[Rfam]
RNA: A. fumigatus sRNA Afu_309
Organism: Cordyceps militaris
RNA sequence: UUUCUUUCUACUUCACAGGAUCUGUGCCAGUCGUCCUCUGCCCCUAGGCGGUGCAGAGUUGAUGUCUGUGCAACUCGAUAACUCAUGGAGCCAUCCACUUGUUAUGAUGUCAAUCUUCCUAUCGACAGGUCCCAGAAUGAUCGGGGGUGUGGUUGCACUGCUCGCCGUCCUUGUGGCGGCAGAGUGGUGAUUCCGGCCAUGCUUCCAAAGCGUUAUACUCCAAACCUUUCUCCUAGGUCGUUGGCCUAUGCGGUUGAGGAAAACCAUGCGUUUACAUUU
Numbered sequence: 001u002u003u004c005u006u007u008c009u010a011c012u013u014c015a016c017a018g019g020a021u022c023u024g025u026g027c028c029a030g031u032c033g034u035c036c037u038c039u040g041c042c043c044c045u046a047g048g049c050g051g052u053g054c055a056g057a058g059u060u061g062a063u064g065u066c067u068g069u070g071c072a073a074c075u076c077g078a079u080a081a082c083u084c085a086u087g088g089a090g091c092c093a094u095c096c097a098c099u100u101g102u103u104a105u106g107a108u109g110u111c112a113a114u115c116u117u118c119c120u121a122u123c124g125a126c127a128g129g130u131c132c133c134a135g136a137a138u139g140a141u142c143g144g145g146g147g148u149g150u151g152g153u154u155g156c157a158c159u160g161c162u163c164g165c166c167g168u169c170c171u172u173g174u175g176g177c178g179g180c181a182g183a184g185u186g187g188u189g190a191u192u193c194c195g196g197c198c199a200u201g202c203u204u205c206c207a208a209a210g211c212g213u214u215a216u217a218c219u220c221c222a223a224a225c226c227u228u229u230c231u232c233c234u235a236g237g238u239c240g241u242u243g244g245c246c247u248a249u250g251c252g253g254u255u256g257a258g259g260a261a262a263a264c265c266a267u268g269c270g271u272u273u274a275c276a277u278u279u
Stems, first nucleotide, its partner, number of pairs: 018132008026071002028068003032064004036058005042051001079124001081122001086112003090108001092106001143204003149200005163189004170184003173180002209272005215267002225259004232253002236246004